[Rfam]
RNA sequence: CUGGAGCAUGAUUCAUGAUUCGUACCGUUCGUUCUCUCAGCCUACUACUACUAAACGCAUCUCUUUUGCGCGGUAGGCUGGCGAACGAAAUUCAACGUUGAAUCGUCUCCAGUAAACAAGAAACCCGCGCCAUUGCGCGGGUUUUUUU
Numbered sequence: 001c002u003g004g005a006g007c008a009u010g011a012u013u014c015a016u017g018a019u020u021c022g023u024a025c026c027g028u029u030c031g032u033u034c035u036c037u038c039a040g041c042c043u044a045c046u047a048c049u050a051c052u053a054a055a056c057g058c059a060u061c062u063c064u065u066u067u068g069c070g071c072g073g074u075a076g077g078c079u080g081g082c083g084a085a086c087g088a089a090a091u092u093c094a095a096c097g098u099u100g101a102a103u104c105g106u107c108u109c110c111a112g113u114a115a116a117c118a119a120g121a122a123a124c125c126c127g128c129g130c131c132a133u134u135g136c137g138c139g140g141g142u143u144u145u146u147u148u
Stems, first nucleotide, its partner, number of pairs: 004109001006107001008106003012102004016097002026087008048076005056070004120145011
Dot-bracket structure: ...(.(.(((.((((((........((((((((..............(((((...((((.......)))).)))))...))))))))........)).)))).)))).)..........(((((((((((....)))))))))))...
Rfam assigns this 148-nucleotide RNA sequence from Enterobacter sp. 638 to the family "Leucine operon leader".
Its family is annotated with leucine biosynthetic process in the Gene Ontology.
NCBI's taxonomy places the organism under Bacteria, Pseudomonadati, Gammaproteobacteria, Enterobacterales, Enterobacter.
On this family, see Kolter and Yanofsky, Annu Rev Genet 1982: "Attenuation in amino acid biosynthetic operons".
The family's consensus secondary structure is taken from published work.